Rfam assigns this 63-nucleotide sequence from a Bacteroidia bacterium to the family "DUF805 RNA".
A search with the family's covariance model found it, with a score of 58 bits.
The organism belongs to Bacteroidia, within Bacteria.
Clan: DUF805 clan.

[Rfam]
RNA sequence: AAAUUGAGGAGUGCAGAAACCUUAAACGCGGAGAAACCGAAAAUCCAUAAGAGUAGGUAAAAA
Numbered sequence: 001a002a003a004u005u006g007a008g009g010a011g012u013g014c015a016g017a018a019a020c021c022u023u024a025a026a027c028g029c030g031g032a033g034a035a036a037c038c039g040a041a042a043a044u045c046c047a048u049a050a051g052a053g054u055a056g057g058u059a060a061a062a063a
Stems, first nucleotide, its partner, number of pairs: 006023004030046003037057002